[Rfam]
RNA: SAM riboswitch aptamer (S box leader)
RNA sequence: AGGUUAUCAAGAAAGGCAAGAGGGAUUAGACCCAAUGAGAGCCUUAGCAACCCUUUAGUCUUGUAAAGAAGGUGCUAAAUUCUACCGGAAGGAGAGAUAACAA
Numbered sequence: 001a002g003g004u005u006a007u008c009a010a011g012a013a014a015g016g017c018a019a020g021a022g023g024g025a026u027u028a029g030a031c032c033c034a035a036u037g038a039g040a041g042c043c044u045u046a047g048c049a050a051c052c053c054u055u056u057a058g059u060c061u062u063g064u065a066a067a068g069a070a071g072g073u074g075c076u077a078a079a080u081u082c083u084a085c086c087g088g089a090a091g092g093a094g095a096g097a098u099a100a101c102a103a
Stems, first nucleotide, its partner, number of pairs: 003101006013045005022033003027084004046076004051072002053068004080095001085092002